[Rfam]
RNA sequence: GGCGACAUGGCCGAGUGGUAAGGCGGGGGAUUACAAAUCCUUUUUUCCUGGUUCAAAUCUGGGUGCCACCU
Dot-bracket structure: ((.(.((..(((.........))).(((((.......)))))....(((((.......))))))).).)).
Numbered sequence: 001g002g003c004g005a006c007a008u009g010g011c012c013g014a015g016u017g018g019u020a021a022g023g024c025g026g027g028g029g030a031u032u033a034c035a036a037a038u039c040c041u042u043u044u045u046u047c048c049u050g051g052u053u054c055a056a057a058u059c060u061g062g063g064u065g066c067c068a069c070c071u
Stems, first nucleotide, its partner, number of pairs: 001070002004067001006065002010024003026042005047063005
Annotation: A member of the RNA family "tRNA" from Populus deltoides, 71 nucleotides long. Its family is annotated with triplet codon-amino acid adaptor activity in the Gene Ontology. Taxonomically the source falls in Populus (Eukaryota, Tracheophyta, eudicotyledons, rosids). By type it is a transfer RNA. The family's consensus secondary structure is taken from published work.